[Rfam]
Shown here is a 75-nucleotide RNA sequence from Cajanus cajan, a member of the family "Plastid-ycf2 5UTR RNA". Plastid ycf2 is a non-coding RNA (ncRNA) recognised in plastids. It was found in the prime untranslated region (5UTR) of ycf2 genes, it presents a tRNA-like motif which suggests it can be involved in mRNA maturation, particularly involved in defining the precise 5' end of the transcript. The match comes from Rfam's covariance-model search (68 bits). The organism belongs to Cajanus, within Eukaryota. By type it is a cis-regulatory element. The family's consensus secondary structure was predicted with LocARNA.
RNA sequence: GUUCAUCCGGUAGGAAUUGAACCUUCGAAUUCGCCAAUUAUGAGUUGGAAACUUUGACCAUUCAGCCAUGAACGC
Numbered sequence: 001g002u003u004c005a006u007c008c009g010g011u012a013g014g015a016a017u018u019g020a021a022c023c024u025u026c027g028a029a030u031u032c033g034c035c036a037a038u039u040a041u042g043a044g045u046u047g048g049a050a051a052c053u054u055u056g057a058c059c060a061u062u063c064a065g066c067c068a069u070g071a072a073c074g075c
Stems, first nucleotide, its partner, number of pairs: 004074001006072001008070001010026001012024003040069003044066006